Overview: The record is a 33-nucleotide sequence, which matches "DUF805b RNA" in Rfam. It is one of the family's seed sequences. Its Rfam clan is "DUF805 clan".
RNA sequence: AAAGCGGAACCCGAAAAGCAUAAAGAGUAGGGA
Number, nucleotide and partner (000 for none) at each position: 001a000002a021003a000004g019005c018006g000007g000008a000009a000010c032011c031012c030013g000014a000015a000016a000017a000018g005019c004020a000021u002022a000023a000024a000025g000026a000027g000028u000029a000030g012031g011032g010033a000